[Rfam]
RNA sequence: GCCGGAGUGGCGGAAUUGGUAGACGCGCUAGAUUCAGGUUCUAGUACUCGAAAGGGUGUGCUGGUUCGAUUCCAGUCUUCGGCA
Numbered sequence: 001g002c003c004g005g006a007g008u009g010g011c012g013g014a015a016u017u018g019g020u021a022g023a024c025g026c027g028c029u030a031g032a033u034u035c036a037g038g039u040u041c042u043a044g045u046a047c048u049c050g051a052a053a054g055g056g057u058g059u060g061c062u063g064g065u066u067c068g069a070u071u072c073c074a075g076u077c078u079u080c081g082g083c084a
Stems, first nucleotide, its partner, number of pairs: 001083007010026003028044005060076005